Rfam assigns this 94-nucleotide sequence to the family "PhotoRC-II RNA". The base pairs follow the family's consensus structure, which is taken from published work. It is annotated as a cis-regulatory element.
[Rfam]
RNA sequence: UAACACAAUACAGCUCCCGCUAACCAAGACCUAUGGGAGGAUAAAUUACGUCUUAAUAUCCAGUAGUGAGGGAUUACUGGAAAUAAGUUUCGCA
Numbered sequence: 001u002a003a004c005a006c007a008a009u010a011c012a013g014c015u016c017c018c019g020c021u022a023a024c025c026a027a028g029a030c031c032u033a034u035g036g037g038a039g040g041a042u043a044a045a046u047u048a049c050g051u052c053u054u055a056a057u058a059u060c061c062a063g064u065a066g067u068g069a070g071g072g073a074u075u076a077c078u079g080g081a082a083a084u085a086a087g088u089u090u091c092g093c094a
Stems, first nucleotide, its partner, number of pairs: 014039006027053004059081007